[Rfam]
RNA sequence: AGACGUUCUCAGGGCGGGGUGCAAUUCCCCACCGGCGGUGUUUGCGCUUUGGCGCAUCAGCCCGCGAGCGCUUGCUUCAGUCGAGGCAAGGUCAGCAGACUCGGUUUGACUCCGAGGCCGACGGUAUAGUCCGGAUGGUAGAGAACACAU
Numbered sequence: 001a002g003a004c005g006u007u008c009u010c011a012g013g014g015c016g017g018g019g020u021g022c023a024a025u026u027c028c029c030c031a032c033c034g035g036c037g038g039u040g041u042u043u044g045c046g047c048u049u050u051g052g053c054g055c056a057u058c059a060g061c062c063c064g065c066g067a068g069c070g071c072u073u074g075c076u077u078c079a080g081u082c083g084a085g086g087c088a089a090g091g092u093c094a095g096c097a098g099a100c101u102c103g104g105u106u107u108g109a110c111u112c113c114g115a116g117g118c119c120g121a122c123g124g125u126a127u128a129g130u131c132c133g134g135a136u137g138g139u140a141g142a143g144a145a146c147a148c149a150u
Base pairs, nucleotide, nucleotide: 005146006145007144008143009142010141017029018028019027031130032129033120034119035065036064037063038062060118061117068096069095100116101115102114103113104112122133123132124131
Dot-bracket structure: ....((((((......(((.......))).[[((((((.....................[[))))..((.........................))...(((((.......)))))]])).(((....]]))).......))))))....